RNA sequence: UUCCCCAGCGACUGGUCUGCAGCUGUUCUCAUGGCGGCGGCGGUGGGCAUUCCUCUGUGGGAAAGAAAUUGUUGCACGGUUACGCACCUCUGUCUCUGCAGAACAGAGAGUUUGUCUGUGUGACAAACACCA
Numbered sequence: 001u002u003c004c005c006c007a008g009c010g011a012c013u014g015g016u017c018u019g020c021a022g023c024u025g026u027u028c029u030c031a032u033g034g035c036g037g038c039g040g041c042g043g044u045g046g047g048c049a050u051u052c053c054u055c056u057g058u059g060g061g062a063a064a065g066a067a068a069u070u071g072u073u074g075c076a077c078g079g080u081u082a083c084g085c086a087c088c089u090c091u092g093u094c095u096c097u098g099c100a101g102a103a104c105a106g107a108g109a110g111u112u113u114g115u116c117u118g119u120g121u122g123a124c125a126a127a128c129a130c131c132a
Stems, first nucleotide, its partner, number of pairs: 003060002006057001017046004022041004074121005090110002093107003

Rfam assigns this 132-nucleotide RNA sequence from Cnephaeus nilssonii to the family "Small nucleolar RNA SNORA41". Rfam classes the family as an H/ACA-box small nucleolar RNA. About the family: ACA41 is a member of the H/ACA class of snoRNA that guide the sites of modification of uridines to pseudouridines. Pairs were carried over by alignment from the consensus structure, which was predicted with PFOLD.